[Rfam]
RNA sequence: AACCCGCCUGCUGUUUACAGGGUCCAGUCACUUAGCGCCCCGGAUUUUCGGGGCUUUUUGUUAUUUCACUGCAGUAAUACCGGGCUAAUAAGCCCUUUUUUU
Dot-bracket structure: .................................((.((((((......)))))).))........................((((......)))).......
Numbered sequence: 001a002a003c004c005c006g007c008c009u010g011c012u013g014u015u016u017a018c019a020g021g022g023u024c025c026a027g028u029c030a031c032u033u034a035g036c037g038c039c040c041c042g043g044a045u046u047u048u049c050g051g052g053g054c055u056u057u058u059u060g061u062u063a064u065u066u067c068a069c070u071g072c073a074g075u076a077a078u079a080c081c082g083g084g085c086u087a088a089u090a091a092g093c094c095c096u097u098u099u100u101u102u
Stems, first nucleotide, its partner, number of pairs: 034057002037054006082095004

The family of this 102-nucleotide RNA sequence from Sodalis-like endosymbiont of Proechinophthirus fluctus is "Gammaprotebacteria rimP leader". The source organism's lineage runs through Bacteria, Pseudomonadota, Enterobacterales, Bruguierivoracaceae and Sodalis. By type it is a cis-regulatory leader. The literature on the family includes a 2010 paper in Genome Biol by Naville and Gautheret, "Premature terminator analysis sheds light on a hidden world of bacterial transcriptional attenuation".